The family of this 72-nucleotide RNA sequence from Chionoecetes opilio is "mir-133 microRNA precursor family". Its family is annotated with miRNA-mediated post-transcriptional gene silencing and RISC complex in the Gene Ontology. For this family Rfam cites "Identification of tissue-specific microRNAs from mouse" (Lagos-Quintana et al., Curr Biol, 2002). The family has 127 seed sequences and 3,763 matches in Rfam 15.1. mir-133 was first experimentally characterised in mouse and homologues have since been discovered in several other species. The mature sequence is excised from the 3' arm of the hairpin.
RNA sequence: CGGCUGGAGCUGGCUGAAACCGGGCCAAAUUGUUUACUGUAGCAUUUGGUCCCCUUCAACCAGCUGUAGUCU
Numbered sequence: 001c002g003g004c005u006g007g008a009g010c011u012g013g014c015u016g017a018a019a020c021c022g023g024g025c026c027a028a029a030u031u032g033u034u035u036a037c038u039g040u041a042g043c044a045u046u047u048g049g050u051c052c053c054c055u056u057c058a059a060c061c062a063g064c065u066g067u068a069g070u071c072u
Stems, first nucleotide, its partner, number of pairs: 003070004008065006015058004022051002025049006